Bacterial RNase P class A: a 379-nucleotide sequence from Basilea psittacipulmonis. It scores 208 bits against the family's covariance model.

RNA sequence: GGAGGAAGUUGGGCAAUCGCGAGAUGUUAAAUUUCGAGGAACGUCCGGACUCCAAAGGACGGGAUAGCGGCUAACAGCCGUCAGGUCAUGAAAAUGACUUAGGAAUAGGGCCACAGAGACGAGACUGAUAUAAGGGCUGGUAUAUACUGGCUCCCAUACGGCGACUCCGUAUGGCGAAUAACUACCUGGGCGUUAUAUUAGGGUGAAACGCGGUAACCUCUAUCUGGAGCAACAUCAAGUAGGCAUAGAGCCUUUGGCAAGAGUGGUCCGCUCUAUCUAUGCGGGUAGAUGGCUCUGAGCUUGUUAGUAAUAAUAAGCCUAGAUGAAUGAUUGCCAGCCUUAGGGCUUACAGAAUCCGGCGUAUAGACUUUCUCCACAC
Numbered sequence: 001g002g003a004g005g006a007a008g009u010u011g012g013g014c015a016a017u018c019g020c021g022a023g024a025u026g027u028u029a030a031a032u033u034u035c036g037a038g039g040a041a042c043g044u045c046c047g048g049a050c051u052c053c054a055a056a057g058g059a060c061g062g063g064a065u066a067g068c069g070g071c072u073a074a075c076a077g078c079c080g081u082c083a084g085g086u087c088a089u090g091a092a093a094a095u096g097a098c099u100u101a102g103g104a105a106u107a108g109g110g111c112c113a114c115a116g117a118g119a120c121g122a123g124a125c126u127g128a129u130a131u132a133a134g135g136g137c138u139g140g141u142a143u144a145u146a147c148u149g150g151c152u153c154c155c156a157u158a159c160g161g162c163g164a165c166u167c168c169g170u171a172u173g174g175c176g177a178a179u180a181a182c183u184a185c186c187u188g189g190g191c192g193u194u195a196u197a198u199u200a201g202g203g204u205g206a207a208a209c210g211c212g213g214u215a216a217c218c219u220c221u222a223u224c225u226g227g228a229g230c231a232a233c234a235u236c237a238a239g240u241a242g243g244c245a246u247a248g249a250g251c252c253u254u255u256g257g258c259a260a261g262a263g264u265g266g267u268c269c270g271c272u273c274u275a276u277c278u279a280u281g282c283g284g285g286u287a288g289a290u291g292g293c294u295c296u297g298a299g300c301u302u303g304u305u306a307g308u309a310a311u312a313a314u315a316a317g318c319c320u321a322g323a324u325g326a327a328u329g330a331u332u333g334c335c336a337g338c339c340u341u342a343g344g345g346c347u348u349a350c351a352g353a354a355u356c357c358g359g360c361g362u363a364u365a366g367a368c369u370u371u372c373u374c375c376a377c378a379c
Base pairs, nucleotide, nucleotide: 001375002374003373004372005371006370007369008368009367010366011364012335013334014333015332016331017330018329020036021035022034023033024032025031041362042361043360045359046358047357048356049355050229051228052227053226057269058268059267060266062225063224064223065222066221067081068080069079070078071077082102083100084099085098086097087096088095089094103220104219108218109217110214111213112212125202126201127199128198129197130196131195132194133193135191233291234290235289236288243282244281245280246279247278248277260274261273262272263271264270299318300317301316302315303314304313305312306311
Rfam classes the family as a ribozyme.